[Rfam]
RNA sequence: GACCAAUGCGCGUCGACCGGACGUGGCGGCACAGGGAACGGGUCGGUUUUUCCGGUCUCCCCUCCCGGCCAACGAAACGGCAGCCGAGCCCUUAUCCCGCCCGCAUU
Numbered sequence: 001g002a003c004c005a006a007u008g009c010g011c012g013u014c015g016a017c018c019g020g021a022c023g024u025g026g027c028g029g030c031a032c033a034g035g036g037a038a039c040g041g042g043u044c045g046g047u048u049u050u051u052c053c054g055g056u057c058u059c060c061c062c063u064c065c066c067g068g069c070c071a072a073c074g075a076a077a078c079g080g081c082a083g084c085c086g087a088g089c090c091c092u093u094a095u096c097c098c099g100c101c102c103g104c105a106u107u
Base pairs, nucleotide, nucleotide: 006106007105008104009103011023012022013021014020025101026100027099028097029096033092034091035090036089039067040066041065042064045061068081069080070079

Shown here is a 107-nucleotide RNA sequence from Devosia sp. YR412, a member of the family "Rhizobiales sRNA Atu_At1". The source organism's lineage runs through Bacteria, Pseudomonadota, Alphaproteobacteria, Hyphomicrobiales and Devosia. The base pairs follow the family's consensus structure, which was predicted with CMfinder. By type it is a small RNA. The literature on the family includes a 2012 paper in RNA Biol by Wilms et al., "Deep sequencing uncovers numerous small RNAs on all four replicons of the plant pathogen Agrobacterium tumefaciens".